[Rfam]
RNA sequence: UCAGCAGUGCUAAAGUGCUUAUAGUGCAGGUAGUUGUUUCCCGAUCUACUGCAAUGUGAGCACUUAAAGUACUUCUAG
Number, nucleotide and partner (000 for none) at each position: 001u000002c000003a000004g075005c000006a073007g072008u000009g070010c069011u068012a000013a065014a064015g063016u062017g061018c060019u059020u058021a057022u056023a055024g000025u053026g052027c051028a000029g050030g049031u048032a047033g046034u000035u000036g000037u000038u000039u000040c000041c000042c000043g000044a000045u000046c033047u032048a031049c030050u029051g027052c026053a025054a000055u023056g022057u021058g020059a019060g018061c017062a016063c015064u014065u013066a000067a000068a011069g010070u009071a000072c007073u006074u000075c004076u000077a000078g000
Shown here is a 78-nucleotide sequence from Esox lucius, a member of the family "mir-17 microRNA precursor family". A search with the family's covariance model found it, with a score of 73 bits. NCBI's taxonomy places the organism under Eukaryota, Vertebrata, Osteoglossocephalai, Esociformes, Esox. Gene Ontology terms of the family: miRNA-mediated post-transcriptional gene silencing and RISC complex. This family represents the microRNA (miRNA) precursor mir-17, family, which includes mir-20, mir-91, and mir-103. miRNAs are transcribed as ~70nt precursors (modelled here) and subsequently processed by the Dicer enzyme to give a ~22nt product. In this case the mature sequence comes from the 3' arm of the precursor. The extents of the hairpin precursors are not generally known and are estimated based on hairpin prediction.